[Rfam]
RNA sequence: UUGGACUCACUCUGCACCCAGCUGGAAUCUCAUGUGAGUGCUUUUUCUCUCUGCCACAGAAACGUUCCAGGGUGCUGUGCUCACCUUGACCUGUCACGGUGACACAGAGGCCUGGGGACACACUC
Numbered sequence: 001u002u003g004g005a006c007u008c009a010c011u012c013u014g015c016a017c018c019c020a021g022c023u024g025g026a027a028u029c030u031c032a033u034g035u036g037a038g039u040g041c042u043u044u045u046u047c048u049c050u051c052u053g054c055c056a057c058a059g060a061a062a063c064g065u066u067c068c069a070g071g072g073u074g075c076u077g078u079g080c081u082c083a084c085c086u087u088g089a090c091c092u093g094u095c096a097c098g099g100u101g102a103c104a105c106a107g108a109g110g111c112c113u114g115g116g117g118a119c120a121c122a123c124u125c
Stems, first nucleotide, its partner, number of pairs: 002053004014041004019036002023032002066116006075107005082101004
Description
Rfam assigns this 125-nucleotide RNA from Hipposideros armiger to the family "Small nucleolar RNA SNORA77". Lineage of the source: Eukaryota > Metazoa > Euteleostomi > Laurasiatheria > Hipposideros. By type it is an H/ACA-box small nucleolar RNA. A search with the family's covariance model found it, with a score of 75 bits. The base pairs follow the family's consensus structure, which was predicted with RNAalifold. Rfam describes the family as follows. ACA63 (SNORA77) is a member of the H/ACA class of snoRNAs that guide the sites of modification of uridines to pseudouridines. This snoRNA was identified by computational screening and its expression in mouse experimentally verified by Northern blot and primer extension analysis.